RNA sequence: ACCGCAAGGAUUUUCGCGAUAUAGGGGAUCAGCGGCAGGUUCAGGAUCAGAAGGAUCAGGUUGCCGAUAUACAUCGAGAUAAUAACGGCCCAGAAGAUCUGCGGGUCGUCGACCAUCAGGCGUGGGCC
Numbered sequence: 001a002c003c004g005c006a007a008g009g010a011u012u013u014u015c016g017c018g019a020u021a022u023a024g025g026g027g028a029u030c031a032g033c034g035g036c037a038g039g040u041u042c043a044g045g046a047u048c049a050g051a052a053g054g055a056u057c058a059g060g061u062u063g064c065c066g067a068u069a070u071a072c073a074u075c076g077a078g079a080u081a082a083u084a085a086c087g088g089c090c091c092a093g094a095a096g097a098u099c100u101g102c103g104g105g106u107c108g109u110c111g112a113c114c115a116u117c118a119g120g121c122g123u124g125g126g127c128c
Stems, first nucleotide, its partner, number of pairs: 003018003007014002026128002029125003033122002036119001038114003043109001045107004050102001052100003056097002061093003073083002
This 128-nucleotide RNA from Tateyamaria sp. ANG-S1 belongs to the Rfam family "Ruegeria cis8 sRNA". Taxonomically the source falls in Tateyamaria (Bacteria, Pseudomonadati, Alphaproteobacteria, Rhodobacterales). The family's RNA type in Rfam is small RNA. Rfam 15.1 lists 138 matches to the family in 133 species.